The family of this 77-nucleotide RNA sequence from Thauera terpenica is "SAH (S-adenosyl-L-homocysteine) riboswitch aptamer".
[Rfam]
RNA sequence: CUUGCCGAGGAGCGUUGCGACCCCGAUCAGAAAUUCGCGGGCCAGGCUCGGCAACCGAUCAACGGCGCUCACAAACC
Number, nucleotide and partner (000 for none) at each position: 001c000002u054003u053004g052005c051006c050007g049008a048009g000010g000011a000012g000013c000014g000015u000016u000017g000018c000019g000020a000021c041022c040023c039024c037025g036026a035027u000028c000029a000030g000031a000032a000033a000034u000035u026036c025037g024038c000039g023040g022041g021042c000043c000044a000045g000046g000047c000048u008049c007050g006051g005052c004053a003054a002055c000056c000057g000058a000059u000060c000061a000062a000063c000064g000065g000066c000067g000068c000069u000070c000071a000072c000073a000074a000075a000076c000077c000

Background:
The match comes from Rfam's covariance-model search (60 bits). Taxonomically the source falls in Thauera terpenica (Bacteria, Pseudomonadota, Betaproteobacteria, Rhodocyclales).